[Rfam]
The record is a 94-nucleotide RNA sequence from Acanthopleuribacter pedis, which matches "Selenocysteine transfer RNA" in Rfam. The organism belongs to Acanthopleuribacter, within Bacteria.
RNA sequence: GGAAGUGGGGGGCGGCUGGUGCCGUUCGCGGUCUUCAAAACCGUUGGUCCCACGGGUUUCCCUGGGACGGUGGGUUCGAUUCCUGCGCACUUCC
Numbered sequence: 001g002g003a004a005g006u007g008g009g010g011g012g013c014g015g016c017u018g019g020u021g022c023c024g025u026u027c028g029c030g031g032u033c034u035u036c037a038a039a040a041c042c043g044u045u046g047g048u049c050c051c052a053c054g055g056g057u058u059u060c061c062c063u064g065g066g067a068c069g070g071u072g073g074g075u076u077c078g079a080u081u082c083c084u085g086c087g088c089a090c091u092u093c094c
Stems, first nucleotide, its partner, number of pairs: 001094007009086001011026006028044005047068005071085004
Rfam links the family to the GO term triplet codon-amino acid adaptor activity.